[Rfam]
RNA sequence: UAAAAGGGUCGGUUGGCUAAAUAUGCCACGCUCACCCUCGCAUUGGUGAGUGCUGUAUGGCUAUCAAGACAUAUGGCCGACAUAAUUUGUGGAACCCCUGAUAGGGUUGGCUCGCUUUUGGCCGACCCUCCA
Numbered sequence: 001u002a003a004a005a006g007g008g009u010c011g012g013u014u015g016g017c018u019a020a021a022u023a024u025g026c027c028a029c030g031c032u033c034a035c036c037c038u039c040g041c042a043u044u045g046g047u048g049a050g051u052g053c054u055g056u057a058u059g060g061c062u063a064u065c066a067a068g069a070c071a072u073a074u075g076g077c078c079g080a081c082a083u084a085a086u087u088u089g090u091g092g093a094a095c096c097c098c099u100g101a102u103a104g105g106g107u108u109g110g111c112u113c114g115c116u117u118u119u120g121g122c123c124g125a126c127c128c129u130c131c132a
Base pairs, nucleotide, nucleotide: 008081009080010079011078012077014028015027016026017025029052030051031050032049033048034047035046036045053076054075055074056073057072058071059070099132100131104128105127106126107125108124110123112121113120
Shown here is a 132-nucleotide RNA sequence from Ziziphus jujuba, a member of the family "U11 spliceosomal RNA". Pairs were carried over by alignment from the consensus structure, which is taken from published work. It scores 73 bits against the family's covariance model.